[Rfam]
RNA sequence: UUUGACCAUUAGGGGAAUCCUUUUAAAGGACUGAGAGACGAGUUUUUACUCCGAUACCCUUAUUACCUGAACAGGUUUGUACCUGCGGAGGGAUGUGGCGCGUCUUCUUA
Numbered sequence: 001u002u003u004g005a006c007c008a009u010u011a012g013g014g015g016a017a018u019c020c021u022u023u024u025a026a027a028g029g030a031c032u033g034a035g036a037g038a039c040g041a042g043u044u045u046u047u048a049c050u051c052c053g054a055u056a057c058c059c060u061u062a063u064u065a066c067c068u069g070a071a072c073a074g075g076u077u078u079g080u081a082c083c084u085g086c087g088g089a090g091g092g093a094u095g096u097g098g099c100g101c102g103u104c105u106u107c108u109u110a
Stems, first nucleotide, its partner, number of pairs: 006098004011060004018030004040051003066091003072085004